[Rfam]
RNA sequence: GCUUCUGAUGAUGAUGAAAGAUAUAACUUUCGUUCUUCUGAGAAUUUCAUGCGGAAACGUUAUGGAGACCUGAACUGAAGAAGC
Numbered sequence: 001g002c003u004u005c006u007g008a009u010g011a012u013g014a015u016g017a018a019a020g021a022u023a024u025a026a027c028u029u030u031c032g033u034u035c036u037u038c039u040g041a042g043a044a045u046u047u048c049a050u051g052c053g054g055a056a057a058c059g060u061u062a063u064g065g066a067g068a069c070c071u072g073a074a075c076u077g078a079a080g081a082a083g084c
Stems, first nucleotide, its partner, number of pairs: 003082004
Dot-bracket structure: ..((((........................................................................))))..
The record is an 84-nucleotide RNA sequence from Beta vulgaris, which matches "Small nucleolar RNA Z159/U59" in Rfam. Its Rfam clan is "SNORD59 clan". The organism belongs to Beta vulgaris, within Eukaryota. A reference for the family is Chen et al. (2003), "The high diversity of snoRNAs in plants: identification and comparative study of 120 snoRNA genes from Oryza sativa", Nucleic Acids Res. Rfam links the family to the GO terms RNA processing and nucleolus. The base pairs follow the family's consensus structure, which was predicted with PFOLD.